[Rfam]
RNA sequence: CUGGUUCCGGUUCACCCGGCUCGCGAGAGCAGGGACCCGGCGACC
Numbered sequence: 001c002u003g004g005u006u007c008c009g010g011u012u013c014a015c016c017c018g019g020c021u022c023g024c025g026a027g028a029g030c031a032g033g034g035a036c037c038c039g040g041c042g043a044c045c
Stems, first nucleotide, its partner, number of pairs: 003045003007040004015034003019030004
RNA: L31-Actinobacteria ribosomal protein leader